[Rfam]
RNA sequence: UGCGACACGCCUUCACCGGUGACUUUGGUGUGAAGCAGCCUACUAAGGCACGCGGUGAAUGCCAAUCGCU
Numbered sequence: 001u002g003c004g005a006c007a008c009g010c011c012u013u014c015a016c017c018g019g020u021g022a023c024u025u026u027g028g029u030g031u032g033a034a035g036c037a038g039c040c041u042a043c044u045a046a047g048g049c050a051c052g053c054g055g056u057g058a059a060u061g062c063c064a065a066u067c068g069c070u
Base pairs, nucleotide, nucleotide: 003068004067005066009062010061012059013058014057015056016055019053020052021051023048024047025046026045027044028043029042030041
mir-124 microRNA precursor family: a 70-nucleotide sequence from Ascaris suum. The family's consensus secondary structure was predicted with PFOLD. Its family is annotated with miRNA-mediated post-transcriptional gene silencing and RISC complex in the Gene Ontology. On this family, see Lim et al., Genes Dev 2003: "The microRNAs of Caenorhabditis elegans".